[Rfam]
RNA sequence: UAUAUAAUAAAUAUUUUGCCUAAGACAGCAUGGUCCCGUAAGGGUUAAAGGUAAUACGCCUGCCGAGGAUGUAUACACAUUUUAGAUGUGUUGAUUAUGUUUAAUCAGUCCUUCUGUCUUGCAAAAGAUGGAAGGACUUUUAGAUUUUACU
Numbered sequence: 001u002a003u004a005u006a007a008u009a010a011a012u013a014u015u016u017u018g019c020c021u022a023a024g025a026c027a028g029c030a031u032g033g034u035c036c037c038g039u040a041a042g043g044g045u046u047a048a049a050g051g052u053a054a055u056a057c058g059c060c061u062g063c064c065g066a067g068g069a070u071g072u073a074u075a076c077a078c079a080u081u082u083u084a085g086a087u088g089u090g091u092u093g094a095u096u097a098u099g100u101u102u103a104a105u106c107a108g109u110c111c112u113u114c115u116g117u118c119u120u121g122c123a124a125a126a127g128a129u130g131g132a133a134g135g136a137c138u139u140u141u142a143g144a145u146u147u148u149a150c151u
Stems, first nucleotide, its partner, number of pairs: 028063003032060003035044003109136010
RNA: Ribosomal protein L10 leader
Organism: Eubacterium sp. CAG:86